[Rfam]
RNA: bZIP non canonical Hac1/Xbp1 intron
Organism: Fonsecaea pedrosoi
RNA sequence: UCGGUCUCCGGUAUGACACAAUAUCCUGCUGUGGUAUUGUGUGACCUGCAGUGUCAGCCGGAGACCUG
Numbered sequence: 001u002c003g004g005u006c007u008c009c010g011g012u013a014u015g016a017c018a019c020a021a022u023a024u025c026c027u028g029c030u031g032u033g034g035u036a037u038u039g040u041g042u043g044a045c046c047u048g049c050a051g052u053g054u055c056a057g058c059c060g061g062a063g064a065c066c067u068g
Stems, first nucleotide, its partner, number of pairs: 001068001003066005009060004020038006043055003